This 90-nucleotide RNA from Paenirhodobacter populi belongs to the Rfam family "Glycine riboswitch aptamer". The pairing is the family consensus, mapped onto this sequence. The match comes from Rfam's covariance-model search (61 bits).

[Rfam]
RNA sequence: GCGACGGAAUCGGGAGAAGCUGGCCCCGCGCCAGUGCCGAAGGAGCAACCGCCCCGGUAAACUCUCAGGCAAAAGGACCGUUCCGGCCAG
Numbered sequence: 001g002c003g004a005c006g007g008a009a010u011c012g013g014g015a016g017a018a019g020c021u022g023g024c025c026c027c028g029c030g031c032c033a034g035u036g037c038c039g040a041a042g043g044a045g046c047a048a049c050c051g052c053c054c055c056g057g058u059a060a061a062c063u064c065u066c067a068g069g070c071a072a073a074a075g076g077a078c079c080g081u082u083c084c085g086g087c088c089a090g
Stems, first nucleotide, its partner, number of pairs: 005085005011080003020034004036070003039066002043064003049057002